[Rfam]
RNA: c-di-AMP riboswitch aptamer (ydaO/yuaA leader)
RNA sequence: AGCCGAACUCUGCCAGCGGAUCAGUAGCACGAAGCACCUACUGGCAGAGGCGGGGGAACCACAAGCGGCUGUUGAAACAGCCUUGGGGUGAAGUCCGCAGCAGCAAGCCACUUUCCGCAGAAGGAAUCUCCCGGGAUACCCCUGCGCCGAAAAGGCUUGUCACGGCGGACCGGGUCGAUGAACUCUCUGACCCGAAUCCGACAGCUAACUUCGCAGGCUAUCCAGAGAGGAAA
Dot-bracket structure: ((((...(((((((((........................)))))))))((((((....((......................))(((.....((((....................................................................))))..((((((..........))))))...))).........)))))).))))..............